[Rfam]
RNA sequence: AAACUAGCCACGUCGGCGAUAGCUUUUUUUGGCUGUGAUCGUUGAUGCUACAUUGGAUAUAAACAGAUGUUUGUUUCGAUUUCUGAUAGGAACCUGUUGAUCUUGUGAUCUACUGGGCCAUUUUGGCGAUUACAUUU
Numbered sequence: 001a002a003a004c005u006a007g008c009c010a011c012g013u014c015g016g017c018g019a020u021a022g023c024u025u026u027u028u029u030u031g032g033c034u035g036u037g038a039u040c041g042u043u044g045a046u047g048c049u050a051c052a053u054u055g056g057a058u059a060u061a062a063a064c065a066g067a068u069g070u071u072u073g074u075u076u077c078g079a080u081u082u083c084u085g086a087u088a089g090g091a092a093c094c095u096g097u098u099g100a101u102c103u104u105g106u107g108a109u110c111u112a113c114u115g116g117g118c119c120a121u122u123u124u125g126g127c128g129a130u131u132a133c134a135u136u137u
Base pairs, nucleotide, nucleotide: 001054002053007051011047012046013045014044015043016042018040019039020038022033023032024031076129077128078127080125089119090118094115096113099110100109101108102107